[Rfam]
RNA: Bacterial large subunit ribosomal RNA, nucleotides 650 to 877
RNA sequence: GACUUAUUGUUGCGAGCAAGCUUAAGCCGAUAGGUGUAGGCGCAGCGAAAGCGAGUCUGAAUAGGGCGUUCAGUUCGUAGCAAUAGACCCGAAACCCGGUGAUCUAGCCAUGAGCAGGUUGAAGGUGCAGUAACAUGCACUGGAGGACCGAACGGGUGCCUGUUGAAAAAGGCUCCGAUGACUUGUGGUUAGGGGUGAAAGGCCAACCAAACCGGGAAAUAGCUGGUU
Numbered sequence: 001g002a003c004u005u006a007u008u009g010u011u012g013c014g015a016g017c018a019a020g021c022u023u024a025a026g027c028c029g030a031u032a033g034g035u036g037u038a039g040g041c042g043c044a045g046c047g048a049a050a051g052c053g054a055g056u057c058u059g060a061a062u063a064g065g066g067c068g069u070u071c072a073g074u075u076c077g078u079a080g081c082a083a084u085a086g087a088c089c090c091g092a093a094a095c096c097c098g099g100u101g102a103u104c105u106a107g108c109c110a111u112g113a114g115c116a117g118g119u120u121g122a123a124g125g126u127g128c129a130g131u132a133a134c135a136u137g138c139a140c141u142g143g144a145g146g147a148c149c150g151a152a153c154g155g156g157u158g159c160c161u162g163u164u165g166a167a168a169a170a171g172g173c174u175c176c177g178a179u180g181a182c183u184u185g186u187g188g189u190u191a192g193g194g195g196u197g198a199a200a201g202g203c204c205a206a207c208c209a210a211a212c213c214g215g216g217a218a219a220u221a222g223c224u225g226g227u228u
Base pairs, nucleotide, nucleotide: 005085006084007083008082009081010080011079012078013077014076015075016074017073020041021040022039023038026035027034028033045052046051055067056066057065058064088226089225091223095216096215097214098213099212100211104192105191106190107189108188109187110186111185112184113183114182115180117149118148119147120146124141125140126139127138128137129136153177154176155175158173159172160171161170194204195203196202
Dot-bracket structure: ....(((((((((((((..((((..(((....)))..))))...((....))..((((.....)))).....)))))))))))))..((.(...((((((...((((((((((((.((((...((((((......))))))....))))...(((..((((........)))).)))..).))))))))))).(((.....)))......))))))......).))..